[Rfam]
RNA sequence: GCAAAAUGAGCGAGUCCUGUACGGCCAGCUCCCUCGGAAUCCCCCAGGAUGGGAACAUAGCAAGGGUACUUGGUUGUAGCGGCGCGAUACAGUCAGCUCGCUCACCC
Number, nucleotide and partner (000 for none) at each position: 001g000002c000003a000004a000005a000006a000007u000008g103009a102010g101011c100012g099013a098014g097015u096016c000017c092018u091019g090020u089021a088022c086023g085024g083025c082026c000027a000028g000029c000030u000031c000032c000033c000034u000035c000036g000037g000038a000039a000040u000041c000042c000043c000044c000045c000046a000047g000048g000049a000050u000051g000052g000053g000054a000055a000056c000057a000058u000059a000060g000061c000062a000063a000064g000065g000066g000067u000068a000069c000070u000071u000072g000073g000074u000075u000076g000077u000078a000079g000080c000081g000082g025083c024084g000085c023086g022087a000088u021089a020090c019091a018092g017093u000094c000095a000096g015097c014098u013099c012100g011101c010102u009103c008104a000105c000106c000107c000
The record is a 107-nucleotide RNA sequence from Prevotella sp. tc2-28, which matches "Bacteroidales small SRP" in Rfam. It is annotated as a non-coding RNA gene. Gene Ontology terms of the family: SRP-dependent cotranslational protein targeting to membrane, signal sequence recognition and signal recognition particle, plasma membrane targeting. The source organism's lineage runs through Bacteria, Pseudomonadati, Bacteroidota, Prevotellaceae and Prevotella. The base pairs follow the family's consensus structure, which is taken from published work. Clan: SRP clan.